The family of this 81-nucleotide RNA from Clupea harengus is "mir-26 microRNA precursor family". For this family Rfam cites "Identification of novel genes coding for small expressed RNAs" (Lagos-Quintana et al., Science, 2001). Rfam links the family to the GO terms RISC complex and miRNA-mediated post-transcriptional gene silencing.
RNA sequence: CCCUGACCUGGUUCAAGUAAUCCAGGAUAGGCUGUGCAUAUCCUGGGUGGCCUAUUCCUGAUUACUUGCACCGGGUGUUGG
Numbered sequence: 001c002c003c004u005g006a007c008c009u010g011g012u013u014c015a016a017g018u019a020a021u022c023c024a025g026g027a028u029a030g031g032c033u034g035u036g037c038a039u040a041u042c043c044u045g046g047g048u049g050g051c052c053u054a055u056u057c058c059u060g061a062u063u064a065c066u067u068g069c070a071c072c073g074g075g076u077g078u079u080g081g
Stems, first nucleotide, its partner, number of pairs: 002080001007075006014068009025057009
The family's consensus secondary structure was predicted with RNAalifold. The family has 82 seed sequences and 2,251 matches in Rfam 15.1.